[Rfam]
RNA: RAGATH-18 RNA
Organism: Bacillus sp. AFS041924
Nucleotides: 062
Base pairs, nucleotide, nucleotide: 001060002059003058004057009049010048011047012046013045022044023043024042030037031036
Number, partner (000 for none) and nucleotide at each position: 001060c002059c003058c004057u005000u006000g007000g008000a009049g010048u011047g012046u013045u014000a015000a016000a017000u018000u019000a020000a021000a022044c023043g024042a025000a026000a027000g028000u029000a030037g031036u032000u033000u034000c035000a036031g037030c038000a039000a040000a041000a042024u043023c044022g045013g046012g047011c048010a049009c050000g051000u052000a053000g054000a055000a056000c057004a058003g059002g060001g061000a062000a